[Rfam]
RNA sequence: CCUGGGGCUUCGCCCCAGGCUGGUAUAAGACGCGCCUUUGGCGCU
Numbered sequence: 001c002c003u004g005g006g007g008c009u010u011c012g013c014c015c016c017a018g019g020c021u022g023g024u025a026u027a028a029g030a031c032g033c034g035c036c037u038u039u040g041g042c043g044c045u
Stems, first nucleotide, its partner, number of pairs: 001019008032044005

Record summary:
The family of this 45-nucleotide RNA from Edaphobacter acidisoli is "Acido-Lenti-1 RNA". Rfam classes the family as a small RNA. Pairs were carried over by alignment from the consensus structure, which is taken from published work. A search with the family's covariance model found it, with a score of 44 bits.